The record is a 98-nucleotide RNA sequence from Paenibacillus durus, which matches "c-di-GMP-I riboswitch aptamer" in Rfam. For this family Rfam cites "Riboswitches in Eubacteria Sense the Second Messenger Cyclic Di-GMP" (Sudarsan et al., Science, 2008). A search with the family's covariance model found it, with a score of 69 bits. The source organism's lineage runs through Bacteria, Bacillati, Bacilli, Paenibacillaceae and Paenibacillus.
RNA sequence: CCUUAAUAUGGGCAAAAUUCUCCGAAAGGGAAUGACGCAAAGCCAUGGAUCUACAGUCUCAGUUCUUCCCUUGAGACCAUGACAGCCAGGUUGCUGAA
Number, nucleotide and partner (000 for none) at each position: 001c000002c000003u000004u000005a000006a000007u000008a000009u000010g000011g000012g038013c037014a000015a000016a000017a033018u032019u031020c030021u000022c029023c028024g000025a000026a000027a000028g023029g022030g020031a019032a018033u017034g000035a000036c000037g013038c012039a000040a000041a092042g091043c090044c089045a000046u088047g087048g086049a000050u082051c081052u000053a000054c000055a000056g077057u076058c075059u074060c073061a072062g071063u000064u000065c000066u000067u000068c000069c000070c000071u062072u061073g060074a059075g058076a057077c056078c000079a000080u000081g051082a050083c000084a000085g000086c048087c047088a046089g044090g043091u042092u041093g000094c000095u000096g000097a000098a000